[Rfam]
Shown here is an 86-nucleotide sequence from Chelonia mydas, a member of the family "Selenocysteine transfer RNA".
The match comes from Rfam's covariance-model search (57 bits).
Rfam links the family to the GO term triplet codon-amino acid adaptor activity.
RNA sequence: GCUCAGGUGAUCCUCAGUGGUCUGAGGUACAGGCUUCAAACCUUCAGCUCUGUGACAAUGGAGUGGUUCAAUUCCACCUCCUGGGU
Numbered sequence: 001g002c003u004c005a006g007g008u009g010a011u012c013c014u015c016a017g018u019g020g021u022c023u024g025a026g027g028u029a030c031a032g033g034c035u036u037c038a039a040a041c042c043u044u045c046a047g048c049u050c051u052g053u054g055a056c057a058a059u060g061g062a063g064u065g066g067u068u069c070a071a072u073u074c075c076a077c078c079u080c081c082u083g084g085g086u
Base pairs, nucleotide, nucleotide: 001086002085003084004083005082006081007080009078012027013026014025015024016023017022028046031043032042033041048060051057063077064076065075066074